[Rfam]
Nucleotides: 051
Base pairs, nucleotide, nucleotide: 005025007024008023009022010021011020012019033051034050036049037048038047039046
Number, partner (000 for none) and nucleotide at each position: 001000g002000g003000g004000u005025g006000u007024u008023c009022g010021c011020u012019g013000u014000a015000u016000c017000g018000g019012c020011a021010g022009c023008g024007a025005c026000a027000g028000g029000a030000a031000a032000g033051c034050g035000a036049u037048g038047g039046u040000c041000g042000g043000g044000c045000c046039g047038c048037c049036a050034c051033g